RNA sequence: AAAAAGGGCAUCUGCUUUGAGUGGCACAGCGGCGGAGGGGUCUCUCUGAAGCCGCUGCGGAAUCGCUAUCAAGAGAUUUCGGGUGCAUAAUUUUUCAGACUCGGGGCUGCUAAUGACUUUCAUUCUUGGCGCCCCU
Numbered sequence: 001a002a003a004a005a006g007g008g009c010a011u012c013u014g015c016u017u018u019g020a021g022u023g024g025c026a027c028a029g030c031g032g033c034g035g036a037g038g039g040g041u042c043u044c045u046c047u048g049a050a051g052c053c054g055c056u057g058c059g060g061a062a063u064c065g066c067u068a069u070c071a072a073g074a075g076a077u078u079u080c081g082g083g084u085g086c087a088u089a090a091u092u093u094u095u096c097a098g099a100c101u102c103g104g105g106g107c108u109g110c111u112a113a114u115g116a117c118u119u120u121c122a123u124u125c126u127u128g129g130c131g132c133c134c135c136u
Base pairs, nucleotide, nucleotide: 008086009085010084011083012082013026014025015024016023027057028056029055030054031053032052033051035047037045038044058081059080060079061078062077063076064075104134105133106132107131109130110129111128112127113126115125116124118122
A member of the RNA family "U11 spliceosomal RNA" from Sinocyclocheilus grahami, 136 nucleotides long. The base pairs follow the family's consensus structure, which is taken from published work. Rfam classes the family as a spliceosomal small nuclear RNA. The organism belongs to Sinocyclocheilus, within Eukaryota.